[Rfam]
RNA sequence: GCUGGUGGGAGGCUCUGACACGCGGCCCAGAUCCGUGCCGCCGGGACCGCGCCGAGCCACUGGCGAGACCGACCCAUACCACC
Numbered sequence: 001g002c003u004g005g006u007g008g009g010a011g012g013c014u015c016u017g018a019c020a021c022g023c024g025g026c027c028c029a030g031a032u033c034c035g036u037g038c039c040g041c042c043g044g045g046a047c048c049g050c051g052c053c054g055a056g057c058c059a060c061u062g063g064c065g066a067g068a069c070c071g072a073c074c075c076a077u078a079c080c081a082c083c
Stems, first nucleotide, its partner, number of pairs: 001083001003081004007075003011058003021051005027045001037069001039065004